[Rfam]
RNA sequence: GACACUACACUGUUCACUACUCACUGUACUACUGUAUCAGGUAGUGGUGUACAGUAGUGCAGUGAAUAGUGAACAGUGUAGUGUC
Numbered sequence: 001g002a003c004a005c006u007a008c009a010c011u012g013u014u015c016a017c018u019a020c021u022c023a024c025u026g027u028a029c030u031a032c033u034g035u036a037u038c039a040g041g042u043a044g045u046g047g048u049g050u051a052c053a054g055u056a057g058u059g060c061a062g063u064g065a066a067u068a069g070u071g072a073a074c075a076g077u078g079u080a081g082u083g084u085c
Stems, first nucleotide, its partner, number of pairs: 001085003005081006012074008022064016
RNA: mir-130 microRNA precursor family